RNA sequence: UCCGGUAUAGUGUAACGGUUAACAUAUCGCGUUUUCACCGCGAAGCUCGGGGUUCGACUCCCCGUACCGGAG
Numbered sequence: 001u002c003c004g005g006u007a008u009a010g011u012g013u014a015a016c017g018g019u020u021a022a023c024a025u026a027u028c029g030c031g032u033u034u035u036c037a038c039c040g041c042g043a044a045g046c047u048c049g050g051g052g053u054u055c056g057a058c059u060c061c062c063c064g065u066a067c068c069g070g071a072g
Stems, first nucleotide, its partner, number of pairs: 001071007010025004027043005048064005
RNA: tRNA